[Rfam]
RNA sequence: AAAGCAGAACCAUGUGUGUACAGCAAUAUGAUUUUUCGUAUAUGCUGAAGAGGAACUGCAAUAUUAAAUGACGGCGAAUGGGCAGUCGAGAUUCAGAAGUUAAUUGAUUCUCUGACAAUCAUUUUCCCAACAUUU
Numbered sequence: 001a002a003a004g005c006a007g008a009a010c011c012a013u014g015u016g017u018g019u020a021c022a023g024c025a026a027u028a029u030g031a032u033u034u035u036u037c038g039u040a041u042a043u044g045c046u047g048a049a050g051a052g053g054a055a056c057u058g059c060a061a062u063a064u065u066a067a068a069u070g071a072c073g074g075c076g077a078a079u080g081g082g083c084a085g086u087c088g089a090g091a092u093u094c095a096g097a098a099g100u101u102a103a104u105u106g107a108u109u110c111u112c113u114g115a116c117a118a119u120c121a122u123u124u125u126c127c128c129a130a131c132a133u134u135u
Base pairs, nucleotide, nucleotide: 004059005058006057007056016043017042018041019040020039021038073127074126076124077123078122079121080120081119085116086115087114088113
A member of the RNA family "small nucleolar RNA snoR135" from Taxus chinensis, 135 nucleotides long.
Rfam classes the family as an H/ACA-box small nucleolar RNA.
The base pairs follow the family's consensus structure, which was predicted with RNAalifold.
Gene Ontology terms of the family: RNA processing and nucleolus.